[Rfam]
RNA sequence: UACAAGUAUUUUACGGUUAAGAAACAACUGUCUCUUGUACAUAUCAUGUAUAAAUCU
Number, nucleotide and partner (000 for none) at each position: 001u000002a000003c000004a000005a000006g000007u000008a000009u000010u000011u000012u000013a000014c000015g000016g000017u000018u037019a036020a035021g034022a033023a000024a031025c030026a000027a000028c000029u000030g025031u024032c000033u022034c021035u020036u019037g018038u000039a000040c000041a000042u000043a000044u000045c000046a000047u000048g000049u000050a000051u000052a000053a000054a000055u000056c000057u000
Shown here is a 57-nucleotide RNA sequence from Solanum commersonii, a member of the family "Plastid-rps18 3UTR RNA". On this family, see Richter et al., Plant Commun 2023: "Retrograde signaling in plants: A critical review focusing on the GUN pathway and beyond". About the family: Plastid rps18 is a non-coding RNA (ncRNA) present in plastids. It was identified as a short stem-loop motif in the 3 prime untranslate region (3UTR) of rps18 gene.